[Rfam]
RNA sequence: UUGCUCAAGGAGCGCUGCGAGAGCCCCGUCGGCACCCACUCGGCGGACAGGCUUCCAGGCUUGGGCAGGGCAGUCGUCAACCGCGCUCACCCGAC
Numbered sequence: 001u002u003g004c005u006c007a008a009g010g011a012g013c014g015c016u017g018c019g020a021g022a023g024c025c026c027c028g029u030c031g032g033c034a035c036c037c038a039c040u041c042g043g044c045g046g047a048c049a050g051g052c053u054u055c056c057a058g059g060c061u062u063g064g065g066c067a068g069g070g071c072a073g074u075c076g077u078c079a080a081c082c083g084c085g086c087u088c089a090c091c092c093g094a095c
Stems, first nucleotide, its partner, number of pairs: 002067007021054005